[Rfam]
RNA sequence: AGAGCUGAUUAGACGAUCGCUGUCGCCUUAGGUGAUGGAGGAAAGUCCGGGCUCCUGAGGUCAGAGUGCCAGGUAACGCCUGGGGGGUGUGAGCCCACGGAAAGUGCAGCAGAAAGGAAACCGCCUGGCUUGCCAGGUAAGGGUGAAAAGGUGCGGUAAGAGCGCACCGCGCGGCUGGUAACAGGCGUGGCGAUGGUAAACCCCACUCGGAGCAAGACCAAAUAGGGAUCCAUUAGCCGUGACCUCCGGCGGAUCCGGGUAGGUCGCUACAGGCGAACGGUGACGUUCGUCGCAGAUGAAUGAUCGUCCAAGACAGAACCCGGCUUAUCGAUCGGCUCAUUCU
Numbered sequence: 001a002g003a004g005c006u007g008a009u010u011a012g013a014c015g016a017u018c019g020c021u022g023u024c025g026c027c028u029u030a031g032g033u034g035a036u037g038g039a040g041g042a043a044a045g046u047c048c049g050g051g052c053u054c055c056u057g058a059g060g061u062c063a064g065a066g067u068g069c070c071a072g073g074u075a076a077c078g079c080c081u082g083g084g085g086g087g088u089g090u091g092a093g094c095c096c097a098c099g100g101a102a103a104g105u106g107c108a109g110c111a112g113a114a115a116g117g118a119a120a121c122c123g124c125c126u127g128g129c130u131u132g133c134c135a136g137g138u139a140a141g142g143g144u145g146a147a148a149a150g151g152u153g154c155g156g157u158a159a160g161a162g163c164g165c166a167c168c169g170c171g172c173g174g175c176u177g178g179u180a181a182c183a184g185g186c187g188u189g190g191c192g193a194u195g196g197u198a199a200a201c202c203c204c205a206c207u208c209g210g211a212g213c214a215a216g217a218c219c220a221a222a223u224a225g226g227g228a229u230c231c232a233u234u235a236g237c238c239g240u241g242a243c244c245u246c247c248g249g250c251g252g253a254u255c256c257g258g259g260u261a262g263g264u265c266g267c268u269a270c271a272g273g274c275g276a277a278c279g280g281u282g283a284c285g286u287u288c289g290u291c292g293c294a295g296a297u298g299a300a301u302g303a304u305c306g307u308c309c310a311a312g313a314c315a316g317a318a319c320c321c322g323g324c325u326u327a328u329c330g331a332u333c334g335g336c337u338c339a340u341u342c343u
Base pairs, nucleotide, nucleotide: 002338003337004336005335006334007333008332009331010330011328012308013307014306015305016304017303018302020038021037022036023035024034025033026032027031043326044325045324047323048322049321050320051319052212053211054210055209059245060244064208065207066206067205068204069083070082071081072080073079084098085096086095087094088093099203100202104201105200106197107196121142122141123138124137125136126135127134128133150168151167152166153165154164155163169191170189171188172187173186175184176183177182216265217264218263219262226256227255228254229253230252231251236250237249238248239247272291273290274289275288276287277286278285279284
This 343-nucleotide RNA sequence from marine gamma proteobacterium HTCC2080 belongs to the Rfam family "Bacterial RNase P class A". The family's RNA type in Rfam is ribozyme. NCBI's taxonomy places the organism under Bacteria, Pseudomonadota, Gammaproteobacteria, Cellvibrionales, Halieaceae. Pairs were carried over by alignment from the consensus structure, which is taken from published work. From the family's description: Ribonuclease P (RNase P) is a ubiquitous endoribonuclease, found in archaea, bacteria and eukarya as well as chloroplasts and mitochondria.